The family of this 119-nucleotide RNA from a Flavobacteriaceae bacterium is "SAM-I/IV (S-adenosyl methionine) riboswitch aptamer".
Its Rfam clan is "SAM clan".

[Rfam]
RNA sequence: CUACAGAAUCCUUAGAGUUUUCUAUUUGAUAGAAACGGCAACCGAGUUGAAAAACCACGGUGCUUCACGGGUUUAAUCCCAGAUUCGGAACUUUAAAUAGUUCAAAAAUAUUCAAAGAG
Dot-bracket structure: .....(((((......(.(((((((...))))))))(((..(((.((....[[))..))).))).................))))).((((........)))).......]].......
Numbered sequence: 001c002u003a004c005a006g007a008a009u010c011c012u013u014a015g016a017g018u019u020u021u022c023u024a025u026u027u028g029a030u031a032g033a034a035a036c037g038g039c040a041a042c043c044g045a046g047u048u049g050a051a052a053a054a055c056c057a058c059g060g061u062g063c064u065u066c067a068c069g070g071g072u073u074u075a076a077u078c079c080c081a082g083a084u085u086c087g088g089a090a091c092u093u094u095a096a097a098u099a100g101u102u103c104a105a106a107a108a109u110a111u112u113c114a115a116a117g118a119g
Stems, first nucleotide, its partner, number of pairs: 006086005017036001019035007037064003042060003046055002052112002088103004